This 122-nucleotide sequence from Shewanella salipaludis belongs to the Rfam family "Phenylalanine leader peptide". The family has 71 seed sequences and 379 matches in Rfam 15.1. NCBI's taxonomy places the organism under Bacteria, Pseudomonadati, Pseudomonadota, Shewanellaceae, Shewanella. By type it is a cis-regulatory leader.

RNA sequence: GAAUAGUCUAAUCCCGGCCUUUUUUGCUUUCUUUUUUAUUCCCCCCUCGGAUGGCGGCGGAUUUUCGGUGUAAAAACGAAAGUGAAAAAUCCAAAGCCUCCCAAGUGGGAGGCUUUUUUGUC
Numbered sequence: 001g002a003a004u005a006g007u008c009u010a011a012u013c014c015c016g017g018c019c020u021u022u023u024u025u026g027c028u029u030u031c032u033u034u035u036u037u038a039u040u041c042c043c044c045c046c047u048c049g050g051a052u053g054g055c056g057g058c059g060g061a062u063u064u065u066c067g068g069u070g071u072a073a074a075a076a077c078g079a080a081a082g083u084g085a086a087a088a089a090u091c092c093a094a095a096g097c098c099u100c101c102c103a104a105g106u107g108g109g110a111g112g113c114u115u116u117u118u119u120g121u122c
Stems, first nucleotide, its partner, number of pairs: 021088011033076002036073004042057002044054002058067003093116010